Description: The family of this 107-nucleotide RNA sequence from Vibrio cholerae is "Vibrio RNA IGR5". The source organism's lineage runs through Bacteria, Vibrionales, Vibrionaceae, Vibrio cholerae O1 and Vibrio cholerae O1 biovar El Tor. Rfam's curators write: Identified by direct cloning an parallel sequencing experiments with 5S/tRNA depletion. Confirmed by Northern blot. The family's RNA type in Rfam is small RNA.
RNA sequence: AAGUACUUAAGCUGGUGCAUCCGUAUUUGUACCAAAAUUUGUACCAAAUCUUCAAAAAUCGUUACGCAAAAUUCAUAAAGCAUUGAAUUUAAAGCGUAUUUUUUCAC
Numbered sequence: 001a002a003g004u005a006c007u008u009a010a011g012c013u014g015g016u017g018c019a020u021c022c023g024u025a026u027u028u029g030u031a032c033c034a035a036a037a038u039u040u041g042u043a044c045c046a047a048a049u050c051u052u053c054a055a056a057a058a059u060c061g062u063u064a065c066g067c068a069a070a071a072u073u074c075a076u077a078a079a080g081c082a083u084u085g086a087a088u089u090u091a092a093a094g095c096g097u098a099u100u101u102u103u104u105c106a107c
Stems, first nucleotide, its partner, number of pairs: 003044004013034007054104004063098005071088005